[Rfam]
A member of the RNA family "mir-87 microRNA precursor family" from Pristionchus pacificus, 76 nucleotides long. Pairs were carried over by alignment from the consensus structure, which was predicted with RNAalifold. Lineage of the source: Eukaryota > Opisthokonta > Bilateria > Rhabditina > Pristionchus. Its family is annotated with RISC complex and miRNA-mediated post-transcriptional gene silencing in the Gene Ontology. The family has 44 seed sequences and 420 matches in Rfam 15.1.

RNA sequence: UGCUCGUCGCCUGAACUUGUACUCAACCUCGUCAAUAGAUGAGCGCAGGUGAGCAAAGUUUCAGGUGUGCGAGCUA
Numbered sequence: 001u002g003c004u005c006g007u008c009g010c011c012u013g014a015a016c017u018u019g020u021a022c023u024c025a026a027c028c029u030c031g032u033c034a035a036u037a038g039a040u041g042a043g044c045g046c047a048g049g050u051g052a053g054c055a056a057a058g059u060u061u062c063a064g065g066u067g068u069g070c071g072a073g074c075u076a
Base pairs, nucleotide, nucleotide: 002074003073004072005071006070007069008067009066010065011064012063013062014061015059016058017057018056022053023052024051025050027049028048029047